RNA sequence: CCUCCAUUUCUUGGCAUGUUGGGUGUUGCUCUGUACCCCUACAUGUAAUGUACGGAGGUAGAUUAUGUCCCCGGUGCUAUGUCUUCGGUGCCAGUCCCUCUCCUGGGCUGGUUCUAUCCUCAAUCACUGGGACAGUU
Numbered sequence: 001c002c003u004c005c006a007u008u009u010c011u012u013g014g015c016a017u018g019u020u021g022g023g024u025g026u027u028g029c030u031c032u033g034u035a036c037c038c039c040u041a042c043a044u045g046u047a048a049u050g051u052a053c054g055g056a057g058g059u060a061g062a063u064u065a066u067g068u069c070c071c072c073g074g075u076g077c078u079a080u081g082u083c084u085u086c087g088g089u090g091c092c093a094g095u096c097c098c099u100c101u102c103c104u105g106g107g108c109u110g111g112u113u114c115u116a117u118c119c120u121c122a123a124u125c126a127c128u129g130g131g132a133c134a135g136u137u
Base pairs, nucleotide, nucleotide: 001058002057003056004055005054015045016044017043018042019041022038023037025036026035072129073128074127075126076125091111092110093109094108095107096106097105

The record is a 137-nucleotide RNA sequence from Xenopus laevis, which matches "Small nucleolar RNA SNORA57" in Rfam.
For this family Rfam cites "Identification of 13 novel human modification guide RNAs" (Vitali et al., Nucleic Acids Res, 2003).
Pairs were carried over by alignment from the consensus structure, which was predicted with PFOLD.
Rfam describes the family as follows. U99 belongs to the H/ACA class of snoRNAs which are thought to guide the sites of modification of uridines to pseudouridines, the target for this family is unknown.
Its family is annotated with nucleolus and RNA processing in the Gene Ontology.